[Rfam]
RNA sequence: GCUGGGUGCAGUGGUUCUUAACAGUUCAACAGUUCUGUAGCAUAAUUGUGAAAUGUUUAGGACCACUUGAUCCGGA
Numbered sequence: 001g002c003u004g005g006g007u008g009c010a011g012u013g014g015u016u017c018u019u020a021a022c023a024g025u026u027c028a029a030c031a032g033u034u035c036u037g038u039a040g041c042a043u044a045a046u047u048g049u050g051a052a053a054u055g056u057u058u059a060g061g062a063c064c065a066c067u068u069g070a071u072c073c074g075g076a
Stems, first nucleotide, its partner, number of pairs: 010067006017060002020057004025052004